[Rfam]
RNA sequence: CCCGCCACUGCACCUGACCACUUCUCUGAUGGCUGGUGCAAUGCAGUGGUGGGCUGAAACUAAGGCCCAGUUUAAAAAACACAUUGUUAUUCUUCAUAUGGAUGACUGUGCUGAACGCAUGGGCACAACC
Numbered sequence: 001c002c003c004g005c006c007a008c009u010g011c012a013c014c015u016g017a018c019c020a021c022u023u024c025u026c027u028g029a030u031g032g033c034u035g036g037u038g039c040a041a042u043g044c045a046g047u048g049g050u051g052g053g054c055u056g057a058a059a060c061u062a063a064g065g066c067c068c069a070g071u072u073u074a075a076a077a078a079a080c081a082c083a084u085u086g087u088u089a090u091u092c093u094u095c096a097u098a099u100g101g102a103u104g105a106c107u108g109u110g111c112u113g114a115a116c117g118c119a120u121g122g123g124c125a126c127a128a129c130c
Base pairs, nucleotide, nucleotide: 005049006048007047008046009045010044017037018036019035020034022031066123067122068121069120070118071117073115075112080108081107086106087105090102091101092100